[Rfam]
RNA sequence: ACUGCUGCUGUAAACAUCCUUGACUGGAAGCUGUGGGCUGUCGGAGGAGCUUUCAGUCGGAUGUUUACAGCGGCCGG
Numbered sequence: 001a002c003u004g005c006u007g008c009u010g011u012a013a014a015c016a017u018c019c020u021u022g023a024c025u026g027g028a029a030g031c032u033g034u035g036g037g038c039u040g041u042c043g044g045a046g047g048a049g050c051u052u053u054c055a056g057u058c059g060g061a062u063g064u065u066u067a068c069a070g071c072g073g074c075c076g077g
Base pairs, nucleotide, nucleotide: 002076004074005073006072008070009069010068011067012066013065014064015063016062017061018060019059023057024056025055026054027053028052029051030050031049032048

The family of this 77-nucleotide RNA from Alectura lathami is "mir-30 microRNA precursor family". Lineage of the source: Eukaryota > Bilateria > Dipnotetrapodomorpha > Galliformes > Alectura. Rfam 15.1 lists 3,879 matches to the family in 647 species. The literature on the family includes a 2001 paper in Science by Lagos-Quintana et al., "Identification of novel genes coding for small expressed RNAs". About the family: This family consists of the mammalian microRNA (miRNA) precursor mir-30a. Animal miRNAs are transcribed as ~70nt precursors and subsequently processed by the Dicer enzyme to give a ~22nt product.